[Rfam]
Shown here is a 74-nucleotide sequence from Tenuifilum thalassicum, a member of the family "tRNA". The family's RNA type in Rfam is transfer RNA. NCBI's taxonomy places the organism under Bacteria, Bacteroidota, Bacteroidia, Tenuifilaceae, Tenuifilum. Pairs were carried over by alignment from the consensus structure, which is taken from published work. Clan: tRNA clan. A search with the family's covariance model found it, with a score of 65 bits.

RNA sequence: CGGGGUGUGGCGCAGUUGGCUAGCGCGCUACGUUCGGGACGUAGAGGCCGGGAGUUCGAGUCUCCCCACCCCGA
Numbered sequence: 001c002g003g004g005g006u007g008u009g010g011c012g013c014a015g016u017u018g019g020c021u022a023g024c025g026c027g028c029u030a031c032g033u034u035c036g037g038g039a040c041g042u043a044g045a046g047g048c049c050g051g052g053a054g055u056u057c058g059a060g061u062c063u064c065c066c067c068a069c070c071c072c073g074a
Stems, first nucleotide, its partner, number of pairs: 001073007010026004028044005050066005